[Rfam]
The family of this 95-nucleotide RNA sequence from Peptoniphilus sp. oral taxon 386 is "THF (Tetrahydrofolate) riboswitch aptamer". Tetrahydrofolate (THF) riboswitch was first reported for Ames et al. as an RNA motif in 5' untranslated (5'-UTR)regions of folate transport and biosynthesis genes in Firmicutes genomes. A search with the family's covariance model found it, with a score of 76 bits. Pairs were carried over by alignment from the consensus structure, which is taken from published work. Its family is annotated with tetrahydrofolate metabolic process in the Gene Ontology.
RNA sequence: AACAGAGUAGGAGAAACUACGUUAAGUGUUCGUGGAUGGGAUGUUGUCACGAAACGAAAUGACAGUUCAUGCGAUAGUUCUCCGCUUCCGCUGGU
Numbered sequence: 001a002a003c004a005g006a007g008u009a010g011g012a013g014a015a016a017c018u019a020c021g022u023u024a025a026g027u028g029u030u031c032g033u034g035g036a037u038g039g040g041a042u043g044u045u046g047u048c049a050c051g052a053a054a055c056g057a058a059a060u061g062a063c064a065g066u067u068c069a070u071g072c073g074a075u076a077g078u079u080c081u082c083c084g085c086u087u088c089c090g091c092u093g094g095u
Stems, first nucleotide, its partner, number of pairs: 001095001003093003010083005016078004020073003026055002029053007039089003043085001059070004